[Rfam]
The record is a 52-nucleotide sequence from Lusitaniella coriacea, which matches "Nitrogen stress-induced RNA 1" in Rfam. Lineage of the source: Bacteria > Cyanobacteriota > Lusitaniellaceae > Lusitaniella > Lusitaniella coriacea. For this family Rfam cites "Heterocyst-specific transcription of NsiR1, a non-coding RNA encoded in a tandem array of direct repeats in cyanobacteria" (Ionescu et al., J Mol Biol, 2010). It scores 47 bits against the family's covariance model. Rfam 15.1 lists 962 matches to the family in 163 species.
RNA sequence: UGGUAGAUGCACCCUGGUUAAGCUCUGGAGUUCCCCUCUAGAGCUUUUUUUC
Numbered sequence: 001u002g003g004u005a006g007a008u009g010c011a012c013c014c015u016g017g018u019u020a021a022g023c024u025c026u027g028g029a030g031u032u033c034c035c036c037u038c039u040a041g042a043g044c045u046u047u048u049u050u051u052c
Base pairs, nucleotide, nucleotide: 002013003012004011022044023043024042025041026040027039028038029037030036